[Rfam]
RNA: Glycine riboswitch aptamer
Organism: Staphylococcus saccharolyticus
RNA sequence: UUGAUCAGUAUUAGAGAGAAUAGAGAUGAAAUUUAGAAUUGACUUAAAUUUCACUUUAUCGCCGAAGGUGCAAGUUAUUUAACGAAACUCUCAGGCAAAAGGAUAAUACUGUAACG
Numbered sequence: 001u002u003g004a005u006c007a008g009u010a011u012u013a014g015a016g017a018g019a020a021u022a023g024a025g026a027u028g029a030a031a032u033u034u035a036g037a038a039u040u041g042a043c044u045u046a047a048a049u050u051u052c053a054c055u056u057u058a059u060c061g062c063c064g065a066a067g068g069u070g071c072a073a074g075u076u077a078u079u080u081a082a083c084g085a086a087a088c089u090c091u092c093a094g095g096c097a098a099a100a101g102g103a104u105a106a107u108a109c110u111g112u113a114a115c116g
Stems, first nucleotide, its partner, number of pairs: 006111008020059006061096003064092002068090001070088001074083002